The record is a 168-nucleotide sequence from Atopostipes suicloacalis, which matches "M-box riboswitch aptamer (ykoK leader)" in Rfam. The organism belongs to Atopostipes suicloacalis, within Bacteria. About the family: M-box riboswitch, also know as ykoK leader is described as a metaloregulatory RNA that sense divalent metals and function as a genetic control element of genes related to divalent metal transport in bacteria.
RNA sequence: AAUAUGAUUUGUUAGGCAGAGGCUCCUAUACAAACACAGGCUACUGCCCAGGAACGUCCAGAGACGCCAAUGGGUAUAACAGGAAUUUCCGAUAUAAGGAAUUUUUUAACGUAGCUAACAGGUAUGUUUACGUUGUAUAGUGCUGAAACUCCACGAAAAAGUCAUGAA
Numbered sequence: 001a002a003u004a005u006g007a008u009u010u011g012u013u014a015g016g017c018a019g020a021g022g023c024u025c026c027u028a029u030a031c032a033a034a035c036a037c038a039g040g041c042u043a044c045u046g047c048c049c050a051g052g053a054a055c056g057u058c059c060a061g062a063g064a065c066g067c068c069a070a071u072g073g074g075u076a077u078a079a080c081a082g083g084a085a086u087u088u089c090c091g092a093u094a095u096a097a098g099g100a101a102u103u104u105u106u107u108a109a110c111g112u113a114g115c116u117a118a119c120a121g122g123u124a125u126g127u128u129u130a131c132g133u134u135g136u137a138u139a140g141u142g143c144u145g146a147a148a149c150u151c152c153a154c155g156a157a158a159a160a161g162u163c164a165u166g167a168a
Stems, first nucleotide, its partner, number of pairs: 005164006011154002013097001015150002021144003026140008040115005046075005055066004082106004088100003117128003